A member of the RNA family "L17 ribosomal protein downstream element" from Vagococcus zengguangii, 81 nucleotides long.

RNA sequence: AGAGUGUUAUGAUGUUGAGUCAAUUCAUUUUGACUUAAGUCUAGCUCGUGGUGGCUACUCCCUAACUUGUGGGUUAGGGAG
Numbered sequence: 001a002g003a004g005u006g007u008u009a010u011g012a013u014g015u016u017g018a019g020u021c022a023a024u025u026c027a028u029u030u031u032g033a034c035u036u037a038a039g040u041c042u043a044g045c046u047c048g049u050g051g052u053g054g055c056u057a058c059u060c061c062c063u064a065a066c067u068u069g070u071g072g073g074u075u076a077g078g079g080a081g
Stems, first nucleotide, its partner, number of pairs: 002047004011041003017036006058081009